RNA: Ruegeria cis52 sRNA
Organism: Marivita hallyeonensis
RNA sequence: GCGCAAGGCGUGUUUGACGACGAUGUUCGGGAAACUCACGCCCUUGAGCCGGGCGGUCCGGAUGUAUUGUGCGGUCAUGACUUCGGCCAUCGACGCGCGUGUCAUGCGCGCGAUGUAGCCCAUUCCGUAGAGCGAGAUCGUCAGAACCGGCAGGAAGAAGUUCUCAAAGUUCGCAUCC
Numbered sequence: 001g002c003g004c005a006a007g008g009c010g011u012g013u014u015u016g017a018c019g020a021c022g023a024u025g026u027u028c029g030g031g032a033a034a035c036u037c038a039c040g041c042c043c044u045u046g047a048g049c050c051g052g053g054c055g056g057u058c059c060g061g062a063u064g065u066a067u068u069g070u071g072c073g074g075u076c077a078u079g080a081c082u083u084c085g086g087c088c089a090u091c092g093a094c095g096c097g098c099g100u101g102u103c104a105u106g107c108g109c110g111c112g113a114u115g116u117a118g119c120c121c122a123u124u125c126c127g128u129a130g131a132g133c134g135a136g137a138u139c140g141u142c143a144g145a146a147c148c149g150g151c152a153g154g155a156a157g158a159a160g161u162u163c164u165c166a167a168a169g170u171u172c173g174c175a176u177c178c
Base pairs, nucleotide, nucleotide: 004140006138009134010133011132013130014129015127016126019124020123027122029120030119037112039110040109041108045104046103047102050099051098053096054074056072057071059069060068061067081095083093084092085091144178146176148173149172150171153164154163155162156161